Rfam assigns this 96-nucleotide RNA from Conger conger to the family "Z30 small nucleolar RNA". The family's consensus secondary structure was predicted with PFOLD. The match comes from Rfam's covariance-model search (74 bits).
RNA sequence: AGCGCUGAUGAGCUGAAGUAUAGUCUGACCUGGUAUUGUUGCCCCCUGGGGCAACUCUGACCAGGGCGUGAUUACUGUAAUCUUCUCUCUGAGUUG
Numbered sequence: 001a002g003c004g005c006u007g008a009u010g011a012g013c014u015g016a017a018g019u020a021u022a023g024u025c026u027g028a029c030c031u032g033g034u035a036u037u038g039u040u041g042c043c044c045c046c047u048g049g050g051g052c053a054a055c056u057c058u059g060a061c062c063a064g065g066g067c068g069u070g071a072u073u074a075c076u077g078u079a080a081u082c083u084u085c086u087c088u089c090u091g092a093g094u095u096g
Stems, first nucleotide, its partner, number of pairs: 002094002038055004
A reference for the family is Galardi et al. (2002), "Purified box C/D snoRNPs are able to reproduce site-specific 2'-O-methylation of target RNA in vitro", Mol Cell Biol.